[Rfam]
U11 spliceosomal RNA: a 201-nucleotide sequence from Drosophila ananassae.
RNA sequence: UAAAAGGGUGCUCGUCUUGGCGCGUUCGAUCGCUGAACAAAAGUGCAGACGCAUUGCGCCGCAGGACCAUCUCAUUUUCUGGUGUGCGUCUAAUUGCCGCCUUCGAUGGUUCCUUGCGUGCCCAGUGGGGUAUGGCUUUGCAUAUCCAGUGCAUAAUUUUUGUAAUGGGGCUGGCGGCUGCACCUCGAACCAUUCGCACUG
Numbered sequence: 001u002a003a004a005a006g007g008g009u010g011c012u013c014g015u016c017u018u019g020g021c022g023c024g025u026u027c028g029a030u031c032g033c034u035g036a037a038c039a040a041a042a043g044u045g046c047a048g049a050c051g052c053a054u055u056g057c058g059c060c061g062c063a064g065g066a067c068c069a070u071c072u073c074a075u076u077u078u079c080u081g082g083u084g085u086g087c088g089u090c091u092a093a094u095u096g097c098c099g100c101c102u103u104c105g106a107u108g109g110u111u112c113c114u115u116g117c118g119u120g121c122c123c124a125g126u127g128g129g130g131u132a133u134g135g136c137u138u139u140g141c142a143u144a145u146c147c148a149g150u151g152c153a154u155a156a157u158u159u160u161u162g163u164a165a166u167g168g169g170g171c172u173g174g175c176g177g178c179u180g181c182a183c184c185u186c187g188a189a190c191c192a193u194u195c196g197c198a199c200u201g
Stems, first nucleotide, its partner, number of pairs: 008152005013051005052127005058121002060118006128147007175201003179198003